Rfam assigns this 84-nucleotide RNA sequence from Xylophilus sp. Leaf220 to the family "SAH (S-adenosyl-L-homocysteine) riboswitch aptamer".
Pairs were carried over by alignment from the consensus structure, which is taken from published work.
Nucleotides: 084
Base pairs, nucleotide, nucleotide: 004051005050006049007048008047021040022039023038024037026035
Number, partner (000 for none) and nucleotide at each position: 001000c002000u003000c004051c005050c006049c007048g008047a009000g010000g011000a012000g013000c014000g015000u016000u017000g018000c019000a020000g021040c022039g023038g024037c025000c026035u027000g028000u029000g030000u031000c032000c033000c034000a035026g036000u037024g038023c039022c040021g041000u042000c043000a044000g045000g046000c047008u048007c049006g050005g051004g052000c053000c054000g055000c056000a057000u058000c059000u060000u061000c062000c063000u064000u065000c066000g067000c068000a069000a070000c071000g072000a073000c074000g075000c076000u077000c078000a079000c080000c081000u082000g083000a084000u

On this family, see Wang et al., Mol Cell 2008: "Riboswitches that sense S-adenosylhomocysteine and activate genes involved in coenzyme recycling". Gene Ontology terms of the family: regulation of gene expression and S-adenosylhomocysteine metabolic process.